A member of the RNA family "Bacterial large subunit ribosomal RNA" from Neomoorella thermoacetica, 598 nucleotides of a longer RNA. It scores 2970 bits against the family's covariance model.

[Rfam]
Nucleotides: 598
Stems, first nucleotide, its partner, number of pairs: 007593010022578001023543002027514002029511007036503002038172002046107003049062003068101007077089003112121003122141007143169009176207001177205005187194002217224002227499001228255004238246002258496004266304011311438003315432005345424004350419001352417006359408003365381001367380004384388001390402003444468008475490005530537002553564004
Number, partner (000 for none) and nucleotide at each position: 001000u002000a003000g004000u005000a006000a007593g008592g009591g010590c011589a012588u013587a014586c015585g016584g017000u018000g019000g020000a021000u022578g023543c024542c025000u026000a027514g028513g029511c030510g031509c032508u033507a034506a035505g036503a037502g038172g039171c040000g041000a042000a043000g044000a045000a046107g047106g048105g049062c050061g051060u052000g053000g054000u055000a056000a057000g058000c059000u060051g061050c062049g063000a064000a065000a066000a067000g068101c069100c070099c071098c072097g073096g074095g075000g076000a077089g078088c079087c080000g081000c082000a083000a084000g085000c086000a087079g088078g089077c090000a091000u092000a093000g094000a095074u096073c097072c098071g099070g100069g101068g102000a103000u104000a105048c106047c107046c108000g109000a110000a111000u112121g113120g114119g115000g116000c117000a118000a119114c120113c121112c122141a123140c124139c125138c126137g127136g128135a129000g130000u131000a132000a133000u134000a135128u136127c137126c138125g139124g140123g141122u142000a143169c144168c145167c146166u147165g148164u149163a150162c151161u152000g153000a154000a155000c156000c157000c158000a159000u160000a161151g162150g163149u164148a165147c166146a167145g168144g169143g170000g171039g172038c173000g174000a175000a176207c177205c178204g179203g180202g181201g182000g183000a184000a185000c186000u187194g188193a189000a190000a191000c192000a193188u194187c195000u196000u197000a198000g199000u200000a201181c202180c203179c204178c205177g206000a207176g208000g209000a210000a211000g212000a213000g214000a215000a216000a217224g218223c219000a220000a221000a222000c223218g224217c225000g226000a227499u228255u229254c230253c231252c232000c233000c234000a235000g236000u237000a238246g239245c240000g241000g242000c243000g244000a245239g246238c247000g248000a249000a250000g251000a252231g253230g254229g255228a256000a257000g258496a259495g260494c261493c262000c263000a264000a265000a266304c267303c268302u269301u270300a271299u272298g273297c274296a275295u276294g277000u278000a279000g280000a281000a282000g283000g284000c285000u286000g287000c288000a289000a290000c291000c292000g293000u294276u295275g296274u297273g298272c299271a300270u301269a302268a303267g304266g305000g306000g307000u308000a309000g310000a311438g312437g313436g314000g315432c316431u317430u318429c319428c320000g321000a322000g323000a324000g325000c326000a327000g328000u329000u330000g331000c332000a333000g334000a335000u336000g337000c338000u339000c340000u341000a342000c343000g344000a345424a346423a347422a348421c349000g350419a351000a352417g353416g354415c355414u356413g357412u358000a359408g360407g361406a362000g363000a364000a365381c366000a367380g368379g369378a370377c371000u372000g373000g374000a375000a376000c377370g378369u379368c380367c381365g382000g383000c384388c385000a386000u387000a388384g389000g390402g391401g392400g393000u394000a395000a396000g397000a398000g399000c400392c401391c402390c403000g404000u405000a406361u407360c408359c409000g410000a411000a412357a413356c414355g415354g416353c417352c418000g419350u420000a421348g422347u423346u424345u425000u426000c427000g428319g429318g430317a431316a432315g433000g434000a435000c436313c437312c438311c439000a440000a441000g442000u443000a444468c445467c446466a447465c448464g449463g450462g451461a452000c453000a454000c455000g456000a457000g458000g459000a460000a461451u462450c463449c464448c465447g466446u467445g468444g469000g470000a471000a472000u473000c474000c475490g476489g477488g478487a479486g480000g481000a482000c483000c484000a485000c486479c487478u488477u489476c490475c491000a492000a493261g494260g495259c496258u497000a498000a499227a500000u501000a502037c503036u504000c505035c506034u507033u508032a509031g510030c511029g512000a513028c514027c515000g516000a517000u518000a519000g520000c521000g522000c523000a524000c525000u526000a527000g528000u529000a530537c531536c532000g533000u534000g535000a536531g537530g538000g539000a540000a541000a542024g543023g544000u545000g546000a547000a548000a549000a550000g551000c552000a553564c554563c555562c556561c557000g558000g559000g560000a561556g562555g563554g564553g565000a566000g567000u568000g569000a570000a571000a572000u573000a574000g575000a576000a577000c578022c579000u580000g581000a582000a583000a584016c585015c586014g587013u588012a589011u590010g591009c592008c593007c594000a595000c596000a597000a598000g